[Rfam]
Rfam assigns this 59-nucleotide sequence to the family "Glutamine riboswitch aptamer (glnA leader)".
RNA sequence: AUCGUUCAUCUCAUUUAAAAUGAGACGGAAGUAAGUUUUCUUAACUGAAGGAACGCUGU
Numbered sequence: 001a002u003c004g005u006u007c008a009u010c011u012c013a014u015u016u017a018a019a020a021u022g023a024g025a026c027g028g029a030a031g032u033a034a035g036u037u038u039u040c041u042u043a044a045c046u047g048a049a050g051g052a053a054c055g056c057u058g059u
Stems, first nucleotide, its partner, number of pairs: 003055005009025005028056001034046003
Pairs were carried over by alignment from the consensus structure, which is taken from published work.